Description
A member of the RNA family "MIR4371 microRNA precursor family" from Glycine soja, 147 nucleotides long.

RNA sequence: CCAUUAAGUGAUGACUUGGUAGACAGAGUGUCACAUCAUCACGUCCAAUCAUUGACAUGUCAUUGAAGGUGAUGAUGUGGCAAUGAGGUGUCUGUGACAAGGCAUGAUGACAUGACACUCUGUCUGCCACAUCAUCACUUAACAGAA
Numbered sequence: 001c002c003a004u005u006a007a008g009u010g011a012u013g014a015c016u017u018g019g020u021a022g023a024c025a026g027a028g029u030g031u032c033a034c035a036u037c038a039u040c041a042c043g044u045c046c047a048a049u050c051a052u053u054g055a056c057a058u059g060u061c062a063u064u065g066a067a068g069g070u071g072a073u074g075a076u077g078u079g080g081c082a083a084u085g086a087g088g089u090g091u092c093u094g095u096g097a098c099a100a101g102g103c104a105u106g107a108u109g110a111c112a113u114g115a116c117a118c119u120c121u122g123u124c125u126g127c128c129a130c131a132u133c134a135u136c137a138c139u140u141a142a143c144a145g146a147a
Stems, first nucleotide, its partner, number of pairs: 001145001004142011017129017036110006043103003049097004054092005059076005
The family is grouped with related families in Rfam's "MIR4387 microRNA precursor clan". The family has 4 seed sequences and 321 matches in Rfam 15.1. The match comes from Rfam's covariance-model search (125 bits). The base pairs follow the family's consensus structure, which was predicted with RNAalifold.